[Rfam]
RNA sequence: UUCAAUCAUCCCGAGCGAUUCGGUCCCACAAGCCCGAAUCCACCAACCUGUCCAAGGCGGAUAAGGUGGUUCUCAUGAUGAGCCCGUUCUGGGAAGCCGUCCACGCACGGC
Numbered sequence: 001u002u003c004a005a006u007c008a009u010c011c012c013g014a015g016c017g018a019u020u021c022g023g024u025c026c027c028a029c030a031a032g033c034c035c036g037a038a039u040c041c042a043c044c045a046a047c048c049u050g051u052c053c054a055a056g057g058c059g060g061a062u063a064a065g066g067u068g069g070u071u072c073u074c075a076u077g078a079u080g081a082g083c084c085c086g087u088u089c090u091g092g093g094a095a096g097c098c099g100u101c102c103a104c105g106c107a108c109g110g111c
Stems, first nucleotide, its partner, number of pairs: 006081005015041001017040007042070003047066003050062003056104001083093004
Dot-bracket structure: .....(((((....(.(((((((..........))))))))(((..((((((...[...))).))).)))......))))).((((...))))..........].......
RNA: SAM-I/IV (S-adenosyl methionine) riboswitch aptamer